[Rfam]
RNA: small nucleolar RNA snoR127
RNA sequence: CUGGGAUGAUGCAAAUUAGCCAAAUCAUACGUCGAUAUGCUCCAGGAGGCAUUUUCUCCUAACCUUUGUUCUUACUAGAGAGGCGGGUGUCUCUCUUCUAUGGACUCGAUAAGGCUUUGGAAAUUUGCCUUUUGUUGAAGUGUAUCCUCUCUGAUGAUAAAACCGAGAUUGGGUGCUGGCUGACCAGA
Dot-bracket structure: ((((...................................................................................................................................................................................)))).
Numbered sequence: 001c002u003g004g005g006a007u008g009a010u011g012c013a014a015a016u017u018a019g020c021c022a023a024a025u026c027a028u029a030c031g032u033c034g035a036u037a038u039g040c041u042c043c044a045g046g047a048g049g050c051a052u053u054u055u056c057u058c059c060u061a062a063c064c065u066u067u068g069u070u071c072u073u074a075c076u077a078g079a080g081a082g083g084c085g086g087g088u089g090u091c092u093c094u095c096u097u098c099u100a101u102g103g104a105c106u107c108g109a110u111a112a113g114g115c116u117u118u119g120g121a122a123a124u125u126u127g128c129c130u131u132u133u134g135u136u137g138a139a140g141u142g143u144a145u146c147c148u149c150u151c152u153g154a155u156g157a158u159a160a161a162a163c164c165g166a167g168a169u170u171g172g173g174u175g176c177u178g179g180c181u182g183a184c185c186a187g188a
Stems, first nucleotide, its partner, number of pairs: 001187004